The record is a 160-nucleotide sequence from Lacrimispora xylanisolvens, which matches "M-box riboswitch aptamer (ykoK leader)" in Rfam. Its family is annotated with response to magnesium ion and regulation of gene expression in the Gene Ontology.
[Rfam]
RNA sequence: ACGAAUAUUCGGUAGGUGAGGCUACUACAGGGAUACGGGCUGUUGCCGCGGAGUUGUGGAGACACAAUGAGAUGGUUUGAACAGGCUGCAUCGACAUUAAGGUGCAGCAUAAUACAGUUACAUUGCCCUGUAAAGCUAAAACUCAUACGAAAAUAUAAGA
Numbered sequence: 001a002c003g004a005a006u007a008u009u010c011g012g013u014a015g016g017u018g019a020g021g022c023u024a025c026u027a028c029a030g031g032g033a034u035a036c037g038g039g040c041u042g043u044u045g046c047c048g049c050g051g052a053g054u055u056g057u058g059g060a061g062a063c064a065c066a067a068u069g070a071g072a073u074g075g076u077u078u079g080a081a082c083a084g085g086c087u088g089c090a091u092c093g094a095c096a097u098u099a100a101g102g103u104g105c106a107g108c109a110u111a112a113u114a115c116a117g118u119u120a121c122a123u124u125g126c127c128c129u130g131u132a133a134a135g136c137u138a139a140a141a142c143u144c145a146u147a148c149g150a151a152a153a154u155a156u157a158a159g160a
Base pairs, nucleotide, nucleotide: 005156006155007154008153009152011148013100015143016142017141020137021136022135026132027131028130029129030128031127032126039118040117041116042115043114045076046075047074048073055066056065057064058063085108086107087106090103091102092101
Description: From the family's description: M-box riboswitch, also know as ykoK leader is described as a metaloregulatory RNA that sense divalent metals and function as a genetic control element of genes related to divalent metal transport in bacteria. It was first reported upstream of the B.subtilis ykoK gene and genes with related functions in other bacteria.